The family of this 46-nucleotide RNA from Sinosuthora webbiana is "Histone 3' UTR stem-loop". The match comes from Rfam's covariance-model search (40 bits). Pairs were carried over by alignment from the consensus structure, which is taken from published work. The mRNAs of metazoan histone genes lack a poly-A tail. 3' end processing occurs at a site between a highly conserved stem-loop (modelled by this family) and a purine rich region around 20 nts downstream (the histone downstream element, or HDE). Its family is annotated with mRNA 3'-end processing by stem-loop binding and cleavage in the Gene Ontology.
[Rfam]
RNA sequence: CCAAAGGCUCUUUUAAGAGCCACCACAUUUUCAAGUAAAAGGGCUG
Numbered sequence: 001c002c003a004a005a006g007g008c009u010c011u012u013u014u015a016a017g018a019g020c021c022a023c024c025a026c027a028u029u030u031u032c033a034a035g036u037a038a039a040a041g042g043g044c045u046g
Stems, first nucleotide, its partner, number of pairs: 006021006
Dot-bracket structure: .....((((((....)))))).........................